[Rfam]
MIR394 microRNA precursor family: a 140-nucleotide sequence from Daucus carota. NCBI's taxonomy places the organism under Eukaryota, Apiaceae, Scandiceae, Daucus, Daucus carota. Rfam 15.1 lists 724 matches to the family in 216 species.
RNA sequence: CUUACAUGAGUUGUUUUGGCAUUCUGUCCACCUCCACUUUGAUAAAUAUAUAUUUUCACUACUCUACUUUAAAUCUUUAUAUAUAUCCAGCUAGACUGGGAAAGAUGGAGGUGGGUAUGCUGCCAACAGACCUCUGUUAG
Numbered sequence: 001c002u003u004a005c006a007u008g009a010g011u012u013g014u015u016u017u018g019g020c021a022u023u024c025u026g027u028c029c030a031c032c033u034c035c036a037c038u039u040u041g042a043u044a045a046a047u048a049u050a051u052a053u054u055u056u057c058a059c060u061a062c063u064c065u066a067c068u069u070u071a072a073a074u075c076u077u078u079a080u081a082u083a084u085a086u087c088c089a090g091c092u093a094g095a096c097u098g099g100g101a102a103a104g105a106u107g108g109a110g111g112u113g114g115g116u117a118u119g120c121u122g123c124c125a126a127c128a129g130a131c132c133u134c135u136g137u138u139a140g
Base pairs, nucleotide, nucleotide: 012130016126017125018124019123020122021121025117026116027115028114029113030112031111032110033109034108035107
On this family, see Jones-Rhoades and Bartel, Mol Cell 2004: "Computational identification of plant microRNAs and their targets, including a stress-induced miRNA".